[Rfam]
RNA sequence: AAAAAUCAUUGUUAGAUGUAGCUCCUAUACUGGAAAUAUGGUACAGCCUCGAAAUGUCUAGAGACGCUAAUCUGGUUAAAUAGAUGUGCUCGUGAAGGGCAAUGUAGCUAGAAGUUUUCUUACGUUGUAUAGUGCUAAAGUUCAACGAUAGGUGUGUGUA
Numbered sequence: 001a002a003a004a005a006u007c008a009u010u011g012u013u014a015g016a017u018g019u020a021g022c023u024c025c026u027a028u029a030c031u032g033g034a035a036a037u038a039u040g041g042u043a044c045a046g047c048c049u050c051g052a053a054a055u056g057u058c059u060a061g062a063g064a065c066g067c068u069a070a071u072c073u074g075g076u077u078a079a080a081u082a083g084a085u086g087u088g089c090u091c092g093u094g095a096a097g098g099g100c101a102a103u104g105u106a107g108c109u110a111g112a113a114g115u116u117u118u119c120u121u122a123c124g125u126u127g128u129a130u131a132g133u134g135c136u137a138a139a140g141u142u143c144a145a146c147g148a149u150a151g152g153u154g155u156g157u158g159u160a
Stems, first nucleotide, its partner, number of pairs: 007154004011146002013096001015142003020136003025132006032126002040108001042106003046076003055066004089099003110120003
Rfam assigns this 160-nucleotide RNA from Pseudolactococcus reticulitermitis to the family "M-box riboswitch aptamer (ykoK leader)".
It scores 77 bits against the family's covariance model.
Rfam describes the family as follows. M-box riboswitch, also know as ykoK leader is described as a metaloregulatory RNA that sense divalent metals and function as a genetic control element of genes related to divalent metal transport in bacteria. It was first reported upstream of the B.subtilis ykoK gene and genes with related functions in other bacteria.
Pairs were carried over by alignment from the consensus structure.